A member of the RNA family "mir-155 microRNA precursor family" from Danio rerio, 64 nucleotides long. Rfam links the family to the GO terms RISC complex and miRNA-mediated post-transcriptional gene silencing. Pairs were carried over by alignment from the consensus structure, which was predicted with RNAalifold.
[Rfam]
RNA sequence: GGUUUAAUGCUAAUCGUGAUAGGGGUUUAGUGCUGAUGAACACCUAUGCUGUUAGCAUUAAUCU
Numbered sequence: 001g002g003u004u005u006a007a008u009g010c011u012a013a014u015c016g017u018g019a020u021a022g023g024g025g026u027u028u029a030g031u032g033c034u035g036a037u038g039a040a041c042a043c044c045u046a047u048g049c050u051g052u053u054a055g056c057a058u059u060a061a062u063c064u
Stems, first nucleotide, its partner, number of pairs: 004061011020046004025041003